A member of the RNA family "Bacteroidete tryptophan peptide leader RNA" from Parabacteroides gordonii, 134 nucleotides long. The base pairs follow the family's consensus structure, which is taken from published work. Taxonomically the source falls in Parabacteroides gordonii (Bacteria, Bacteroidota, Tannerellaceae, Parabacteroides). The match comes from Rfam's covariance-model search (74 bits).
Nucleotides: 134
Stems, first nucleotide, its partner, number of pairs: 036106003040102006049095002057089002060086003066080001069077002
Number, partner (000 for none) and nucleotide at each position: 001000c002000c003000g004000u005000a006000a007000u008000a009000a010000u011000a012000a013000a014000a015000a016000c017000a018000g019000u020000c021000a022000u023000g024000a025000g026000a027000a028000c029000a030000u031000u032000u033000a034000u035000a036106g037105u038104a039000a040102a041101u042100a043099c044098a045097u046000u047000u048000u049095g050094g051000u052000g053000g054000u055000g056000g057089c058088g059000c060086u061085c062084u063000u064000u065000a066080c067000u068000c069077c070076u071000c072000a073000a074000a075000c076070g077069g078000u079000c080066g081000u082000a083000a084062g085061g086060a087000a088058c089057g090000c091000a092000g093000u094050c095049c096000u097045g098044u099043g100042u101041a102040u103000a104038u105037a106036c107000u108000a109000g110000u111000c112000a113000a114000g115000a116000u117000a118000u119000c120000a121000u122000a123000g124000a125000a126000a127000g128000g129000c130000c131000u132000g133000u134000c